[Rfam]
RNA sequence: CAAAGAAAUCAAACCACUUCCAAACAUACCUCUUUUCAAGCGCUUUUAGGCCUUCCUCUCAUCAAUCAACAUGUCUCCCUGCUCCUGCAACUGCUGCUCCGGCAACUGCUCUAGCUGCUCCUGCAGCUCUUGCAGCGUUGGUUUCC
Numbered sequence: 001c002a003a004a005g006a007a008a009u010c011a012a013a014c015c016a017c018u019u020c021c022a023a024a025c026a027u028a029c030c031u032c033u034u035u036u037c038a039a040g041c042g043c044u045u046u047u048a049g050g051c052c053u054u055c056c057u058c059u060c061a062u063c064a065a066u067c068a069a070c071a072u073g074u075c076u077c078c079c080u081g082c083u084c085c086u087g088c089a090a091c092u093g094c095u096g097c098u099c100c101g102g103c104a105a106c107u108g109c110u111c112u113a114g115c116u117g118c119u120c121c122u123g124c125a126g127c128u129c130u131u132g133c134a135g136c137g138u139u140g141g142u143u144u145c146c
Stems, first nucleotide, its partner, number of pairs: 080104004087097003108133002117124002
Overview
The record is a 146-nucleotide RNA sequence from Aspergillus uvarum, which matches "A. fumigatus sRNA Afu_254" in Rfam. The family's consensus secondary structure was predicted with WAR. The organism belongs to Aspergillus uvarum, within Eukaryota. Rfam 15.1 lists 185 matches to the family in 142 species. The family's RNA type in Rfam is small RNA.